[Rfam]
RNA sequence: AAACCGUAUGAUGAUUUUGGAUUUAUAUUCUCACGACGGUCGUCUGAGGUACCUUGUUGUGCCAAAAUUGAUGUGACAAUCCAUUUUUUCUGAUGGUU
Numbered sequence: 001a002a003a004c005c006g007u008a009u010g011a012u013g014a015u016u017u018u019g020g021a022u023u024u025a026u027a028u029u030c031u032c033a034c035g036a037c038g039g040u041c042g043u044c045u046g047a048g049g050u051a052c053c054u055u056g057u058u059g060u061g062c063c064a065a066a067a068u069u070g071a072u073g074u075g076a077c078a079a080u081c082c083a084u085u086u087u088u089u090c091u092g093a094u095g096g097u098u
Stems, first nucleotide, its partner, number of pairs: 001098002004095001050061003
RNA: Small nucleolar RNA Z161/Z228
Organism: Anisodus acutangulus